The record is a 142-nucleotide RNA from Polypterus senegalus, which matches "Small nucleolar RNA SNORD94" in Rfam. The literature on the family includes a 2003 paper in Nucleic Acids Res by Vitali et al., "Identification of 13 novel human modification guide RNAs".
[Rfam]
RNA sequence: CCAGCAAUGAUGAUUGGCGCAGGGGUACGGACAUCAGCUGUAUCAUGGGAGCUGAGUGUAAAUGCUUGUUCUCUGUUUAGCUUGCAUGUGGUGGCUUAAUGGAGGCUCAUUUAUACUAGAAAAAAGCCAUAGUCUGAGCUGG
Number, nucleotide and partner (000 for none) at each position: 001c142002c141003a140004g139005c138006a000007a000008u000009g000010a000011u000012g000013a000014u000015u000016g000017g000018c000019g000020c000021a000022g000023g000024g000025g000026u000027a000028c000029g000030g000031a000032c000033a000034u000035c000036a000037g000038c000039u000040g000041u000042a000043u000044c000045a000046u000047g000048g000049g000050a000051g000052c000053u000054g000055a000056g000057u000058g000059u000060a000061a000062a000063u000064g000065c000066u000067u000068g000069u000070u000071c000072u000073c000074u000075g000076u000077u000078u000079a000080g000081c000082u000083u000084g000085c000086a000087u000088g000089u000090g000091g000092u000093g000094g000095c000096u000097u000098a000099a000100u000101g000102g000103a000104g000105g000106c000107u000108c000109a000110u000111u000112u000113a000114u000115a000116c000117u000118a000119g000120a000121a000122a000123a000124a000125a000126g000127c000128c000129a000130u000131a000132g000133u000134c000135u000136g000137a000138g005139c004140u003141g002142g001